This 114-nucleotide RNA sequence from Cohaesibacter sp. ES.047 belongs to the Rfam family "Alphaproteobacterial ar14".
The family has 118 seed sequences and 784 matches in Rfam 15.1.
A search with the family's covariance model found it, with a score of 84 bits.
Smr14C2 was renamed NfeR1 (Nodule Formation Efficiency RNA) highly expressed in salt stress and during the symbiotic interaction on legume roots.
Taxonomically the source falls in Cohaesibacter (Bacteria, Pseudomonadota, Hyphomicrobiales, Cohaesibacteraceae).

[Rfam]
RNA sequence: GGAAUUCAGACUUCUACCUCCUCCCAGAAGUCUGGACAGUUUCAAAACGUCUCCUCCCCGUUUUGGAACACCAUUAGAAGCCCACCGGACCUCCUCCCCCGGUGGGCUUUCUUC
Numbered sequence: 001g002g003a004a005u006u007c008a009g010a011c012u013u014c015u016a017c018c019u020c021c022u023c024c025c026a027g028a029a030g031u032c033u034g035g036a037c038a039g040u041u042u043c044a045a046a047a048c049g050u051c052u053c054c055u056c057c058c059c060g061u062u063u064u065g066g067a068a069c070a071c072c073a074u075u076a077g078a079a080g081c082c083c084a085c086c087g088g089a090c091c092u093c094c095u096c097c098c099c100c101g102g103u104g105g106g107c108u109u110u111c112u113u114c
Stems, first nucleotide, its partner, number of pairs: 007034003011030004039069010078109011